Small nucleolar RNA snR66: a 99-nucleotide RNA from Hansenula ciferrii. Lineage of the source: Eukaryota > saccharomyceta > Saccharomycetes > Phaffomycetales > Hansenula. Rfam classes the family as a C/D-box small nucleolar RNA. The match comes from Rfam's covariance-model search (78 bits). Rfam links the family to the GO terms RNA processing and nucleolus.
[Rfam]
Nucleotides: 099
Base pairs, nucleotide, nucleotide: 001099002098003097004096005095006094
Number, partner (000 for none) and nucleotide at each position: 001099u002098u003097g004096a005095u006094u007000u008000u009000u010000a011000a012000u013000a014000u015000g016000a017000u018000g019000a020000g021000a022000u023000a024000c025000a026000a027000a028000u029000g030000c031000a032000a033000c034000a035000u036000a037000g038000a039000g040000u041000c042000a043000a044000g045000c046000u047000c048000a049000g050000a051000g052000u053000u054000a055000a056000a057000u058000a059000a060000c061000a062000g063000g064000g065000a066000c067000g068000a069000g070000a071000c072000u073000u074000g075000c076000g077000a078000u079000u080000a081000c082000a083000c084000u085000c086000u087000g088000a089000u090000u091000u092000u093000a094006a095005a096004u097003c098002a099001a